This 382-nucleotide RNA from Orthopestivirus giraffae belongs to the Rfam family "Pestivirus internal ribosome entry site (IRES) including 5'UTR SLI".
A reference for the family is Arhab et al. (2020), "Dissemination of Internal Ribosomal Entry Sites (IRES) Between Viruses by Horizontal Gene Transfer", Viruses.
The family is grouped with related families in Rfam's "IRES1 clan".
Pairs were carried over by alignment from the consensus structure.
Rfam's curators put it in the seed alignment.
The organism belongs to Orthopestivirus giraffae, within Viruses.
RNA sequence: GUAUACGAGUUUAGCUCAAUCCUCGUAUACAAUAUUGGGCGUCACCAAAUAUAGAUUUGGCAUAGGCAACACCCCGAUGCGAAGGCCGAAAAGGGCUAACCAUGCCCUUAGUAGGACUAGCAAAAAAUCGGGGACUAGCCCAGGUGGUGAGCUUCCUGGAUGACCGAAGCCCUGAGUACAGGGCAGUCGUCAACAGUUCAACACGCAGAAUAGGUUUGCGUCUUGAUAUGCUGUGUGGACGAGGGCAUGCCCACGGUACAUCUUAACCUAUCCGGGGGUCGGAUAGGCGAAAGUCCAGUAUUGGACUGGGAGUACAGCCUGAUAGGGUGUUGCAGAGACCCAUCUGAUAGGCUAGUAUAAAAAACUCUGCUGUACAUGGCAC
Numbered sequence: 001g002u003a004u005a006c007g008a009g010u011u012u013a014g015c016u017c018a019a020u021c022c023u024c025g026u027a028u029a030c031a032a033u034a035u036u037g038g039g040c041g042u043c044a045c046c047a048a049a050u051a052u053a054g055a056u057u058u059g060g061c062a063u064a065g066g067c068a069a070c071a072c073c074c075c076g077a078u079g080c081g082a083a084g085g086c087c088g089a090a091a092a093g094g095g096c097u098a099a100c101c102a103u104g105c106c107c108u109u110a111g112u113a114g115g116a117c118u119a120g121c122a123a124a125a126a127a128u129c130g131g132g133g134a135c136u137a138g139c140c141c142a143g144g145u146g147g148u149g150a151g152c153u154u155c156c157u158g159g160a161u162g163a164c165c166g167a168a169g170c171c172c173u174g175a176g177u178a179c180a181g182g183g184c185a186g187u188c189g190u191c192a193a194c195a196g197u198u199c200a201a202c203a204c205g206c207a208g209a210a211u212a213g214g215u216u217u218g219c220g221u222c223u224u225g226a227u228a229u230g231c232u233g234u235g236u237g238g239a240c241g242a243g244g245g246c247a248u249g250c251c252c253a254c255g256g257u258a259c260a261u262c263u264u265a266a267c268c269u270a271u272c273c274g275g276g277g278g279u280c281g282g283a284u285a286g287g288c289g290a291a292a293g294u295c296c297a298g299u300a301u302u303g304g305a306c307u308g309g310g311a312g313u314a315c316a317g318c319c320u321g322a323u324a325g326g327g328u329g330u331u332g333c334a335g336a337g338a339c340c341c342a343u344c345u346g347a348u349a350g351g352c353u354a355g356u357a358u359a360a361a362a363a364a365c366u367c368u369g370c371u372g373u374a375c376a377u378g379g380c381a382c
Base pairs, nucleotide, nucleotide: 001030002029003028004027005026006025007024008023009022072133073132074131075130076129077128079121080120084118085117086115087114091109092108093107094106095105096104134356135355136354137353138352139351140350141346142345143344144343145342146341147340148316149315151313152312153311154310155309156308158263159262160261161260162259163257164256165255166254169184170183171182172181173180174179187242188241189240190239191238193234194233195232196231197230198226199225200224201223203221204220205219206218207217208216243252244251245250267287268286269285270284271283272282273281274280275279292307293306294305295304296303297302317328318327319326320325330372332370333369334368335367336366337365